[Rfam]
RNA sequence: AGUAACGAGCGCCAGCACGCUUCGGAAUUUUCGUCGCAUUGCCCUGAGUUGCUGUCCGGCAACCCUCUCUUCCGGUGGGGUGCCUCAGGUGACUACUCGGCAACGUUCACGGGUUGCAAGCGGAUUCA
Numbered sequence: 001a002g003u004a005a006c007g008a009g010c011g012c013c014a015g016c017a018c019g020c021u022u023c024g025g026a027a028u029u030u031u032c033g034u035c036g037c038a039u040u041g042c043c044c045u046g047a048g049u050u051g052c053u054g055u056c057c058g059g060c061a062a063c064c065c066u067c068u069c070u071u072c073c074g075g076u077g078g079g080g081u082g083c084c085u086c087a088g089g090u091g092a093c094u095a096c097u098c099g100g101c102a103a104c105g106u107u108c109a110c111g112g113g114u115u116g117c118a119a120g121c122g123g124a125u126u127c128a
Stems, first nucleotide, its partner, number of pairs: 001097004009057001011056001013054004058084003063080003067075002100117005
Dot-bracket structure: ((((....(.(.((((..................................)))).))(((..(((.((.....))..))).))).........))))..(((((........)))))...........
Shown here is a 128-nucleotide sequence from Renibacterium salmoninarum, a member of the family "SAM (S-adenosyl methionine) riboswitch aptamer". The match comes from Rfam's covariance-model search (52 bits).